[Rfam]
RNA sequence: AGGGCAGAUCGGGCAAUCGCGGGGGAUGCAAAUCCUUCGAGGAAGGUCCGGACUCCACAGGGCGGGAUAGCGGCUAACGGCCGUCCGGCGACGCUGGCGGGCUUGCCCGCCGGAAAAGCCGAGGAACAGGGCCACAGAGACGAGUCUGUCAUGAGGGCGCGCCUGGCGCGCACCGGCACGGCCAUCUCCGUGCCGCGCCGUCCGGAAACGGGCGGCGGCAUGACAGGGUGAAACGCGGCAACCUCUAUCCGGAGCAACAUCAAAUAGGCAUGCGUACGGCCGUAAGGCCGGGAAGGGCGGCUCCGUCCAAGCAUGCGGGUAGGUGGCUGGAGCGGUCCAGCAAUGGUUCGCCAAGAGGAAUGAUUGCCCGCCGGGGAAACCCGGCGUACAGAAUCCGGCCUAUAGAUCUGCUCUGCAC
Number, nucleotide and partner (000 for none) at each position: 001a414002g413003g412004g411005c410006a409007g408008a407009u406010c405011g403012g368013g367014c366015a365016a364017u363018c362019g000020c039021g038022g037023g036024g035025g034026a033027u032028g000029c000030a000031a000032a027033u026034c025035c024036u023037u022038c021039g020040a000041g000042g000043a000044a401045g400046g399047u000048c398049c397050g396051g395052a394053c254054u253055c252056c251057a000058c000059a000060g303061g302062g301063c300064g000065g250066g249067a248068u247069a246070g084071c083072g082073g081074c080075u000076a000077a000078c000079g000080g074081c073082c072083g071084u070085c123086c121087g120088g119089c118090g000091a000092c000093g000094c000095u000096g000097g000098c000099g000100g000101g000102c000103u000104u000105g000106c000107c000108c000109g000110c000111c000112g000113g000114a000115a000116a000117a000118g089119c088120c087121g086122a000123g085124g245125a244126a000127c000128a000129g243130g242131g239132c238133c237134a000135c000136a000137g000138a000139g000140a000141c000142g000143a000144g000145u000146c227147u226148g224149u223150c222151a221152u220153g219154a000155g000156g216157g000158c000159g000160c000161g000162c000163c000164u000165g000166g000167c000168g000169c000170g000171c000172a000173c000174c000175g000176g000177c000178a000179c000180g000181g000182c000183c000184a000185u000186c000187u000188c000189c000190g000191u000192g000193c000194c000195g000196c000197g000198c000199c000200g000201u000202c000203c000204g000205g000206a000207a000208a000209c000210g000211g000212g000213c000214g000215g000216c156217g000218g000219c153220a152221u151222g150223a149224c148225a000226g147227g146228g000229u000230g000231a000232a000233a000234c000235g000236c000237g133238g132239c131240a000241a000242c130243c129244u125245c124246u069247a068248u067249c066250c065251g056252g055253a054254g053255c000256a000257a000258c325259a324260u323261c322262a000263a000264a000265u000266a000267g000268g316269c315270a314271u313272g312273c311274g000275u000276a000277c000278g000279g000280c000281c000282g000283u000284a000285a000286g000287g000288c000289c000290g000291g000292g000293a000294a000295g308296g307297g306298c305299g000300g063301c062302u061303c060304c000305g298306u297307c296308c295309a000310a000311g273312c272313a271314u270315g269316c268317g000318g000319g000320u000321a000322g261323g260324u259325g258326g000327c000328u000329g000330g000331a000332g351333c350334g349335g348336u000337c346338c345339a344340g000341c000342a000343a000344u339345g338346g337347u000348u335349c334350g333351c332352c000353a000354a000355g000356a000357g000358g000359a000360a000361u000362g018363a017364u016365u015366g014367c013368c012369c000370g000371c000372c000373g000374g000375g000376g000377a000378a000379a000380c000381c000382c000383g000384g000385c000386g000387u000388a000389c000390a000391g000392a000393a000394u052395c051396c050397g049398g048399c046400c045401u044402a000403u011404a000405g010406a009407u008408c007409u006410g005411c004412u003413c002414u001415g000416c000417a000418c000

Bacterial RNase P class A: a 418-nucleotide RNA sequence from Bordetella pertussis. The match comes from Rfam's covariance-model search (190 bits). Taxonomically the source falls in Bordetella pertussis (Bacteria, Pseudomonadati, Burkholderiales, Alcaligenaceae).